[Rfam]
RNA sequence: CGGCUGUAGCAACAUCAACCAACGGGAAGAAAAACUGGUCGGUUUGCCUUGAAAUUUUCCAUCGGCAUUCCGCUUACCGAACUUCCCAUAUCG
Numbered sequence: 001c002g003g004c005u006g007u008a009g010c011a012a013c014a015u016c017a018a019c020c021a022a023c024g025g026g027a028a029g030a031a032a033a034a035c036u037g038g039u040c041g042g043u044u045u046g047c048c049u050u051g052a053a054a055u056u057u058u059c060c061a062u063c064g065g066c067a068u069u070c071c072g073c074u075u076a077c078c079g080a081a082c083u084u085c086c087c088a089u090a091u092c093g
Stems, first nucleotide, its partner, number of pairs: 024087006037074003041070002044067001046066003
The family of this 93-nucleotide sequence from Ensete ventricosum is "Small nucleolar RNA snoR109". The family's RNA type in Rfam is H/ACA-box small nucleolar RNA. The base pairs follow the family's consensus structure, which was predicted with WAR. A reference for the family is Marker et al. (2002), "Experimental RNomics: identification of 140 candidates for small non-messenger RNAs in the plant Arabidopsis thaliana", Curr Biol. Taxonomically the source falls in Ensete (Eukaryota, Embryophyta, commelinids, Zingiberales). A search with the family's covariance model found it, with a score of 39 bits.